[Rfam]
RNA sequence: AUCGUGAUGUGAUGACAACUUCUUGAGCUAUAUAUUUUCUUCCGAGAUUUUCAAUGAAGAAAACAUCUCAUCAAAUGAUUUGCACGUCAGUCUGAUCACAAU
Numbered sequence: 001a002u003c004g005u006g007a008u009g010u011g012a013u014g015a016c017a018a019c020u021u022c023u024u025g026a027g028c029u030a031u032a033u034a035u036u037u038u039c040u041u042c043c044g045a046g047a048u049u050u051u052c053a054a055u056g057a058a059g060a061a062a063a064c065a066u067c068u069c070a071u072c073a074a075a076u077g078a079u080u081u082g083c084a085c086g087u088c089a090g091u092c093u094g095a096u097c098a099c100a101a102u
Stems, first nucleotide, its partner, number of pairs: 001102002004099004